[Rfam]
RNA: terC RNA
RNA sequence: CGUGCGGACCGGGCCCCUCUGACGACUGGCAAGUCGUGAUGUCGGAUCGAGAUG
Numbered sequence: 001c002g003u004g005c006g007g008a009c010c011g012g013g014c015c016c017c018u019c020u021g022a023c024g025a026c027u028g029g030c031a032a033g034u035c036g037u038g039a040u041g042u043c044g045g046a047u048c049g050a051g052a053u054g
Stems, first nucleotide, its partner, number of pairs: 006048002009045004022037006